This 121-nucleotide RNA sequence belongs to the Rfam family "DUF3800-I RNA". The family's RNA type in Rfam is small RNA. Rfam describes the family as follows. Actinobacteria, Firmicutes, Fusobacteria, Proteobacteria (1 example), Tenericutes (2 examples).
RNA sequence: UUACAUUGAAGAUAGGUCUACCUAUACUGUUUAUAUCUAUGAUUACUGAAUGUGAGUUUAAGCGUACUGUAAGUACGUCAGACAUAGAGCCACUCCUUUAAUGUGAGUGGUCUUUUUAUAA
Numbered sequence: 001u002u003a004c005a006u007u008g009a010a011g012a013u014a015g016g017u018c019u020a021c022c023u024a025u026a027c028u029g030u031u032u033a034u035a036u037c038u039a040u041g042a043u044u045a046c047u048g049a050a051u052g053u054g055a056g057u058u059u060a061a062g063c064g065u066a067c068u069g070u071a072a073g074u075a076c077g078u079c080a081g082a083c084a085u086a087g088a089g090c091c092a093c094u095c096c097u098u099u100a101a102u103g104u105g106a107g108u109g110g111u112c113u114u115u116u117u118a119u120a121a
Stems, first nucleotide, its partner, number of pairs: 007033004011027001012025005036088006046081003049058003062078006089111007096103001